[Rfam]
RNA sequence: UAGUUAGCCAGGCAUAUGGUUGCAAGCGCUGGGGACUUAGUCCAUGAA
Numbered sequence: 001u002a003g004u005u006a007g008c009c010a011g012g013c014a015u016a017u018g019g020u021u022g023c024a025a026g027c028g029c030u031g032g033g034g035a036c037u038u039a040g041u042c043c044a045u046g047a048a
Base pairs, nucleotide, nucleotide: 004034008032009031011030012027013026015046016045017044018043019042

This 48-nucleotide RNA sequence from Umbravirus nicotianae belongs to the Rfam family "Exoribonuclease-resistant RNA (xrRNA) plant-infecting virus (class 3)". The organism belongs to Umbravirus nicotianae, within Viruses. Pairs were carried over by alignment from the consensus structure, which is taken from published work. Exoribonuclease-resistant RNA (xrRNA) plant-infecting virus (class 3) is a ncRNA that was reported in Plant viruses. Its family is annotated with viral RNA genome replication in the Gene Ontology. It is annotated as a cis-regulatory element.